[Rfam]
RNA sequence: UAUAUUUGCACGCUGAUAGCAGAAUGCUAUUUAUACAUAAAAAUCAUUUAAAAUAAUAUUGGAAUG
Numbered sequence: 001u002a003u004a005u006u007u008g009c010a011c012g013c014u015g016a017u018a019g020c021a022g023a024a025u026g027c028u029a030u031u032u033a034u035a036c037a038u039a040a041a042a043a044u045c046a047u048u049u050a051a052a053a054u055a056a057u058a059u060u061g062g063a064a065u066g
Base pairs, nucleotide, nucleotide: 015031016030017029018028019027
The record is a 66-nucleotide RNA from Aquimarina latercula, which matches "S15-Flavobacteria ribosomal protein leader" in Rfam. The base pairs follow the family's consensus structure, which is taken from published work. A reference for the family is Eckert and Weinberg (2020), "Discovery of 20 novel ribosomal leader candidates in bacteria and archaea", BMC Microbiol. Rfam's curators put it in the seed alignment. Rfam classes the family as a cis-regulatory leader.